The record is a 113-nucleotide RNA from Paenibacillus sp. KS1, which matches "azaaromatic riboswitch aptamer (yjdF RNA)" in Rfam.
The family's consensus secondary structure is taken from published work.
RNA sequence: AGGUAAGAGUGUAAAAACACGGUUUUCGGUUGGUAGUCCGAACGUUCCGGCAUGAAAAUGUUCGGGAUCAGUAACCUUCCCCCCUUGGGAUGUCCCUCACUCUUUAUGACAAA
Numbered sequence: 001a002g003g004u005a006a007g008a009g010u011g012u013a014a015a016a017a018c019a020c021g022g023u024u025u026u027c028g029g030u031u032g033g034u035a036g037u038c039c040g041a042a043c044g045u046u047c048c049g050g051c052a053u054g055a056a057a058a059u060g061u062u063c064g065g066g067a068u069c070a071g072u073a074a075c076c077u078u079c080c081c082c083c084c085u086u087g088g089g090a091u092g093u094c095c096c097u098c099a100c101u102c103u104u105u106a107u108g109a110c111a112a113a
Stems, first nucleotide, its partner, number of pairs: 005104007022043002026041004044068006078090004